RNA sequence: CCUCGAUGAUGAUAAAUCCAAAGGCUUGUUUCUCAAAGACAUUCGCAGUGGCCGCCUGAGAGCUUUCGCCUUUCGCCGGGCUUGAGAGCUUCUGCUGUUUCACUCCUUCCUUGGAUGUCUGAGACU
Numbered sequence: 001c002c003u004c005g006a007u008g009a010u011g012a013u014a015a016a017u018c019c020a021a022a023g024g025c026u027u028g029u030u031u032c033u034c035a036a037a038g039a040c041a042u043u044c045g046c047a048g049u050g051g052c053c054g055c056c057u058g059a060g061a062g063c064u065u066u067c068g069c070c071u072u073u074c075g076c077c078g079g080g081c082u083u084g085a086g087a088g089c090u091u092c093u094g095c096u097g098u099u100u101c102a103c104u105c106c107u108u109c110c111u112u113g114g115a116u117g118u119c120u121g122a123g124a125c126u
Stems, first nucleotide, its partner, number of pairs: 003124002062089006
RNA: Small nucleolar RNA SNORD14